[Rfam]
RNA sequence: AAUGGGGCAGAGUAGUAGGCGGUGCCGCUGUGCUUUGAUAAAGACCCAUGUGGCUGGCAACAGCUCUUACCUUUUGUCUCCGG
Numbered sequence: 001a002a003u004g005g006g007g008c009a010g011a012g013u014a015g016u017a018g019g020c021g022g023u024g025c026c027g028c029u030g031u032g033c034u035u036u037g038a039u040a041a042a043g044a045c046c047c048a049u050g051u052g053g054c055u056g057g058c059a060a061c062a063g064c065u066c067u068u069a070c071c072u073u074u075u076g077u078c079u080c081c082g083g
Base pairs, nucleotide, nucleotide: 004080005079006078007077008076010074011073012072015070016069017068018067019066021064023062024061027058028057029056030055032054033053034052038049039048
Shown here is an 83-nucleotide sequence from Gorilla gorilla, a member of the family "mir-621 microRNA precursor family".
Rfam links the family to the GO terms RISC complex and miRNA-mediated post-transcriptional gene silencing.
The match comes from Rfam's covariance-model search (79 bits).
NCBI's taxonomy places the organism under Eukaryota, Sarcopterygii, Hominoidea, Homininae, Gorilla gorilla.
A reference for the family is Baev et al. (2009), "Computational identification of novel microRNA homologs in the chimpanzee genome", Comput Biol Chem.